The record is a 168-nucleotide RNA from Ruminococcaceae bacterium BL-6, which matches "Ribosomal protein L10 leader" in Rfam. The match comes from Rfam's covariance-model search (56 bits). A reference for the family is Iben and Draper (2008), "Specific interactions of the L10(L12)4 ribosomal protein complex with mRNA, rRNA, and L11", Biochemistry. The family's RNA type in Rfam is cis-regulatory leader.
Nucleotides: 168
Base pairs, nucleotide, nucleotide: 028083029082030081031080032079033078034041035040125153126152127151128150129149130148131147132146133145134144135143136142
Number, partner (000 for none) and nucleotide at each position: 001000a002000u003000u004000a005000u006000c007000g008000c009000u010000g011000u012000u013000c014000u015000u016000u017000a018000u019000c020000c021000u022000a023000a024000g025000a026000c027000a028083g029082c030081a031080g032079g033078u034041g035040c036000g037000u038000c039000u040035g041034c042000u043000u044000a045000a046000u047000g048000g049000a050000a051000u052000u053000g054000c055000g056000g057000g058000a059000c060000g061000a062000u063000c064000g065000g066000u067000c068000c069000u070000a071000a072000g073000u074000u075000c076000c077000g078033g079032c080031c081030u082029g083028c084000c085000g086000a087000g088000g089000a090000a091000a092000g093000g094000g095000a096000c097000g098000a099000u100000c101000a102000c103000g104000a105000u106000a107000c108000u109000g110000a111000u112000u113000u114000u115000u116000u117000g118000u119000a120000u121000g122000u123000g124000a125153c126152g127151c128150c129149c130148u131147u132146c133145c134144c135143g136142c137000g138000g139000c140000u141000u142136g143135c144134g145133g146132g147131a148130a149129g150128g151127g152126c153125g154000u155000u156000u157000u158000c159000c160000a161000u162000u163000a164000u165000u166000u167000g168000a